[Rfam]
RNA sequence: ACUCAACAGGAAUUCUUUAAGAAGGGUGAGUUAAAGUUGCAAAAGCGCGCCGUUACUGAUUUAUUUCAGAAGACGGAUUCUUGAACAGCUUGUUAACCCUAAACUUUAUUUUUAAGGAGUUU
Numbered sequence: 001a002c003u004c005a006a007c008a009g010g011a012a013u014u015c016u017u018u019a020a021g022a023a024g025g026g027u028g029a030g031u032u033a034a035a036g037u038u039g040c041a042a043a044a045g046c047g048c049g050c051c052g053u054u055a056c057u058g059a060u061u062u063a064u065u066u067c068a069g070a071a072g073a074c075g076g077a078u079u080c081u082u083g084a085a086c087a088g089c090u091u092g093u094u095a096a097c098c099c100u101a102a103a104c105u106u107u108a109u110u111u112u113u114a115a116g117g118a119g120u121u122u
Base pairs, nucleotide, nucleotide: 023100024099025098026097027096034091035090036089037088038087043082044081045080050076051075052074053073
The record is a 122-nucleotide RNA sequence from Aequorivita viscosa, which matches "6S-Flavo RNA" in Rfam. The source organism's lineage runs through Bacteria, Pseudomonadati, Flavobacteriia, Flavobacteriales and Aequorivita. A search with the family's covariance model found it, with a score of 93 bits. The family's consensus secondary structure is taken from published work.